[Rfam]
mir-2513 microRNA precursor family: a 120-nucleotide sequence from Blumeria hordei. The base pairs follow the family's consensus structure, which was predicted with RNAalifold. NCBI's taxonomy places the organism under Eukaryota, Fungi, Pezizomycotina, Helotiales, Blumeria.
RNA sequence: AUAGAAGAUGGUAGUUUUAGUCUGUAAAGCGUUCUUAGACGACAUAAACAAGGCUUCGUAAGGAAUGCAUUGUUUAUGUCGUCUAAGAACGCUUUACAGACUAAAACUACCAUCUUCUAU
Number, nucleotide and partner (000 for none) at each position: 001a120002u119003a118004g117005a116006a115007g114008a113009u112010g111011g110012u109013a108014g107015u106016u105017u104018u103019a102020g101021u100022c099023u098024g097025u096026a095027a094028a093029g000030c091031g090032u000033u088034c087035u086036u085037a084038g083039a082040c081041g080042a079043c078044a077045u076046a075047a074048a000049c000050a000051a000052g000053g000054c000055u000056u000057c000058g000059u000060a000061a000062g000063g000064a000065a000066u000067g000068c000069a000070u000071u000072g000073u000074u047075u046076a045077u044078g043079u042080c041081g040082u039083c038084u037085a036086a035087g034088a033089a000090c031091g030092c000093u028094u027095u026096a025097c024098a023099g022100a021101c020102u019103a018104a017105a016106a015107c014108u013109a012110c011111c010112a009113u008114c007115u006116u005117c004118u003119a002120u001
Its family is annotated with RISC complex and miRNA-mediated post-transcriptional gene silencing in the Gene Ontology.